[Rfam]
RNA sequence: CUCUGUUCAUAUAAUAAAUGUUCAGGGCAGAAGGAG
Numbered sequence: 001c002u003c004u005g006u007u008c009a010u011a012u013a014a015u016a017a018a019u020g021u022u023c024a025g026g027g028c029a030g031a032a033g034g035a036g
Stems, first nucleotide, its partner, number of pairs: 001027005008020003
L31-Firmicutes ribosomal protein leader: a 36-nucleotide RNA sequence from Gemella sp. GH3. The match comes from Rfam's covariance-model search (38 bits). Pairs were carried over by alignment from the consensus structure, which is taken from published work.